[Rfam]
RNA: mir-19 microRNA precursor family
RNA sequence: GUCUGUUGUCAGUUUUGCUGGUUUGCAUUCCGCUGUACUUCCGUUGCUGUGCAAAUCCAUGCAAAACUGACCACGGCA
Numbered sequence: 001g002u003c004u005g006u007u008g009u010c011a012g013u014u015u016u017g018c019u020g021g022u023u024u025g026c027a028u029u030c031c032g033c034u035g036u037a038c039u040u041c042c043g044u045u046g047c048u049g050u051g052c053a054a055a056u057c058c059a060u061g062c063a064a065a066a067c068u069g070a071c072c073a074c075g076g077c078a
Base pairs, nucleotide, nucleotide: 003076004075005074006073008071009070010069011068012067013066014065015064016063017062018061020058021057022055023054024053025052026051027050028049032047033046